[Rfam]
RNA sequence: GGCCCAAAUUUGAAGUAGAGUAGAUUAAUAGGAUCAGUUGGCCAUACUAAUCUACUCUACCUCAAGUUUGUGCCC
Numbered sequence: 001g002g003c004c005c006a007a008a009u010u011u012g013a014a015g016u017a018g019a020g021u022a023g024a025u026u027a028a029u030a031g032g033a034u035c036a037g038u039u040g041g042c043c044a045u046a047c048u049a050a051u052c053u054a055c056u057c058u059a060c061c062u063c064a065a066g067u068u069u070g071u072g073c074c075c
Stems, first nucleotide, its partner, number of pairs: 001074003005070005011064003015060009025050003029046002032043001034041002